Background:
Shown here is a 134-nucleotide RNA from Pteropus alecto, a member of the family "Small nucleolar RNA SNORA43". ACA43 is a member of the H/ACA class of snoRNA that guide the sites of modification of uridines to pseudouridines. Its Rfam clan is "SNORA17 clan". A search with the family's covariance model found it, with a score of 138 bits. The source organism's lineage runs through Eukaryota, Vertebrata, Dipnotetrapodomorpha, Amniota and Pteropus. By type it is an H/ACA-box small nucleolar RNA. Rfam 15.1 lists 492 matches to the family in 142 species.
RNA sequence: GCUGCUGGUAUGGCCGGCACCACAGACGCAGCUGCCGUGCUGCACCUGUGACCUCGGGGCAAAGAGGAAGUGGCUAUUUCUACGCUCAGUGUUCAGAACAGUGAGCACUAAGAAUGGUUUGUAGCCUGACAUUU
Numbered sequence: 001g002c003u004g005c006u007g008g009u010a011u012g013g014c015c016g017g018c019a020c021c022a023c024a025g026a027c028g029c030a031g032c033u034g035c036c037g038u039g040c041u042g043c044a045c046c047u048g049u050g051a052c053c054u055c056g057g058g059g060c061a062a063a064g065a066g067g068a069a070g071u072g073g074c075u076a077u078u079u080c081u082a083c084g085c086u087c088a089g090u091g092u093u094c095a096g097a098a099c100a101g102u103g104a105g106c107a108c109u110a111a112g113a114a115u116g117g118u119u120u121g122u123a124g125c126c127u128g129a130c131a132u133u134u
Stems, first nucleotide, its partner, number of pairs: 001060003005057004022049004072126003080117003085112002090107006